[Rfam]
RNA: Small nucleolar RNA SNORA55
Organism: Monodelphis domestica
RNA sequence: GCACCUGCAUCUUUCCCAUUCUUGGCUGCUUUGUGCCUGUCUGGGGACAGGUGGUGCUACAGUACAAGCAGAGGAAAUCCAGACAGGUUAUCUUCUGUUUACUUUGGGGCUUGUCUCUACAACUCUGCCACACUU
Numbered sequence: 001g002c003a004c005c006u007g008c009a010u011c012u013u014u015c016c017c018a019u020u021c022u023u024g025g026c027u028g029c030u031u032u033g034u035g036c037c038u039g040u041c042u043g044g045g046g047a048c049a050g051g052u053g054g055u056g057c058u059a060c061a062g063u064a065c066a067a068g069c070a071g072a073g074g075a076a077a078u079c080c081a082g083a084c085a086g087g088u089u090a091u092c093u094u095c096u097g098u099u100u101a102c103u104u105u106g107g108g109g110c111u112u113g114u115c116u117c118u119a120c121a122a123c124u125c126u127g128c129c130a131c132a133c134u135u
Base pairs, nucleotide, nucleotide: 001057002056003055004054005053013047014046015045016044017043018042021039068128069127070126071125072124073123081116082115083114084113085112086111087110088109095107096106097105